[Rfam]
RNA sequence: AAAGAUAGAAGUAGAAAACUCGGGCGCUACACACCUUUGUGCAAGGUUUCUGGAGAUGAGGGGAAUGCCCGUCCCUCCUAUCUUU
Numbered sequence: 001a002a003a004g005a006u007a008g009a010a011g012u013a014g015a016a017a018a019c020u021c022g023g024g025c026g027c028u029a030c031a032c033a034c035c036u037u038u039g040u041g042c043a044a045g046g047u048u049u050c051u052g053g054a055g056a057u058g059a060g061g062g063g064a065a066u067g068c069c070c071g072u073c074c075c076u077c078c079u080a081u082c083u084u085u
Stems, first nucleotide, its partner, number of pairs: 001085008011030004021071005032053001033047004058077005
Rfam assigns this 85-nucleotide sequence to the family "skipping-rope RNA". It is one of the family's seed sequences. The base pairs follow the family's consensus structure, which is taken from published work.